Shown here is a 126-nucleotide RNA sequence from Clostridium thermosuccinogenes, a member of the family "FMN riboswitch aptamer (RFN element)".
RNA sequence: UGAAAUCUUCAGGGCAGGGUGCAAGUCCCUACCGGCGGUAAUAUGCUUUAGCAUUAGCCCGCGAGCGCAAGCCGACACGGUGAGAUUCCGUGGCCGACAGUAUAGUCUGGAUGGGAGAAGAUUGUA
Number, nucleotide and partner (000 for none) at each position: 001u000002g000003a000004a123005a122006u121007c120008u119009u118010c117011a000012g000013g000014g000015c000016a000017g029018g028019g027020u000021g000022c000023a000024a000025g000026u000027c019028c018029c017030u000031a106032c105033c096034g095035g062036c061037g060038g059039u000040a000041a000042u000043a000044u000045g000046c000047u000048u000049u000050a000051g000052c000053a000054u000055u000056a000057g094058c093059c038060c037061g036062c035063g000064a000065g072066c071067g000068c000069a000070a000071g066072c065073c000074g000075a000076c092077a091078c090079g089080g088081u000082g000083a000084g000085a000086u000087u000088c080089c079090g078091u077092g076093g058094c057095c034096g033097a000098c109099a108100g107101u000102a000103u000104a000105g032106u031107c100108u099109g098110g000111a000112u000113g000114g000115g000116a000117g010118a009119a008120g007121a006122u005123u004124g000125u000126a000

About the family: The RFN element is a highly conserved domain that is found frequently in the 5'-untranslated regions of prokaryotic mRNAs that encode for flavin mononucleotide (FMN) biosynthesis and transport proteins.